Shown here is an 84-nucleotide sequence from Rhizophagus clarus, a member of the family "tRNA". Pairs were carried over by alignment from the consensus structure, which is taken from published work. The organism belongs to Rhizophagus, within Eukaryota. It is annotated as a transfer RNA. Rfam links the family to the GO term triplet codon-amino acid adaptor activity.

RNA sequence: GCGAGUUUAGCUCAGUUGGGAGAGCGUCAGACUGAAGUUUGUUUCGUAAUCUGAAGGCCGGGUGUUCAAUCCACCCAACUCGCA
Numbered sequence: 001g002c003g004a005g006u007u008u009a010g011c012u013c014a015g016u017u018g019g020g021a022g023a024g025c026g027u028c029a030g031a032c033u034g035a036a037g038u039u040u041g042u043u044u045c046g047u048a049a050u051c052u053g054a055a056g057g058c059c060g061g062g063u064g065u066u067c068a069a070u071c072c073a074c075c076c077a078a079c080u081c082g083c084a
Base pairs, nucleotide, nucleotide: 001083002082003081004080005079006078007077010025011024012023013022027054028053029052030051031050060076061075062074063073064072